RNA sequence: AAAGGAGCAAUAAUCAUUUUCUUGUUCUGUCAAGAGGGUGCUAUUGCUCUUUUUUUC
Numbered sequence: 001a002a003a004g005g006a007g008c009a010a011u012a013a014u015c016a017u018u019u020u021c022u023u024g025u026u027c028u029g030u031c032a033a034g035a036g037g038g039u040g041c042u043a044u045u046g047c048u049c050u051u052u053u054u055u056u057c
Base pairs, nucleotide, nucleotide: 001053002052003051004050005049006048007047008046009045010044011043012042014040019036020035021034022033023032024031
RNA: Plastid-psbA-3 3UTR RNA